[Rfam]
RNA sequence: GACAAAGUUCAAAAAUAUAUAUAUAUAUAUUUUUGCAACUCCUAGCUUCGCUAGUUCGAUUCCGACACCAAUCCAGGUGCAUUGUGCCAUAGCCAGUUUUAACGCUUACCCAAAGGUGGGCUGGUGGUAACCACACAUCAAGUGUGGGUGUUCCCACCGCCCACUGUAGGGUGAGGCCCUUUAGGGUUGUUGUUAAACUUUUGGACUACCUGUGGUCACCAUACAUAUAGUGUGGAUUU
Numbered sequence: 001g002a003c004a005a006a007g008u009u010c011a012a013a014a015a016u017a018u019a020u021a022u023a024u025a026u027a028u029a030u031u032u033u034u035g036c037a038a039c040u041c042c043u044a045g046c047u048u049c050g051c052u053a054g055u056u057c058g059a060u061u062c063c064g065a066c067a068c069c070a071a072u073c074c075a076g077g078u079g080c081a082u083u084g085u086g087c088c089a090u091a092g093c094c095a096g097u098u099u100u101a102a103c104g105c106u107u108a109c110c111c112a113a114a115g116g117u118g119g120g121c122u123g124g125u126g127g128u129a130a131c132c133a134c135a136c137a138u139c140a141a142g143u144g145u146g147g148g149u150g151u152u153c154c155c156a157c158c159g160c161c162c163a164c165u166g167u168a169g170g171g172u173g174a175g176g177c178c179c180u181u182u183a184g185g186g187u188u189g190u191u192g193u194u195a196a197a198c199u200u201u202u203g204g205a206c207u208a209c210c211u212g213u214g215g216u217c218a219c220c221a222u223a224c225a226u227a228u229a230g231u232g233u234g235g236a237u238u239u
Stems, first nucleotide, its partner, number of pairs: 007039003010035011042054005064080001066079004107173005118162004131147006
A member of the RNA family "Deltacoronavirus 5'UTR" from Houbara coronavirus UAE-HKU28, 239 nucleotides long.
A reference for the family is Goebel et al. (2004), "The 3' cis-acting genomic replication element of the severe acute respiratory syndrome coronavirus can function in the murine coronavirus genome", J Virol.
The base pairs follow the family's consensus structure.
The 5'UTR of deltacoronaviruses is similar to the 5'UTRs of alpha- and betacoronaviruses, as they also contain three helices denoted as SL1, SL2 and SL4. SL1 and SL2 have major impacts of the level of viral replication, whereas SL4 is hypothesized to play a role as a 'spacer' during the template-switch of CoV sgRNA synthesis. Further, predictions show a conserved fourth stem-loop (SL3) between SL2 and SL4, sometimes observed in beta- and gammacoronaviruses as well. SL3 usually exposes the TRS-L sequence, which is crucial for sgRNA synthesis during viral replication, in the loop region.